[Rfam]
About this RNA
DUF805b RNA: a 36-nucleotide RNA sequence from Taibaiella lutea. A search with the family's covariance model found it, with a score of 38 bits. The family's RNA type in Rfam is cis-regulatory element.
RNA sequence: GAGGCCGAACCUGAAAAGCCUUUAAUAGAGUAAGGA
Number, nucleotide and partner (000 for none) at each position: 001g000002a021003g020004g019005c018006c000007g000008a000009a000010c035011c034012u033013g000014a000015a000016a000017a000018g005019c004020c003021u002022u000023u000024a000025a000026u000027a000028g000029a000030g000031u000032a000033a012034g011035g010036a000
Notes:
Taxonomically the source falls in Taibaiella (Bacteria, Pseudomonadati, Chitinophagia, Chitinophagales).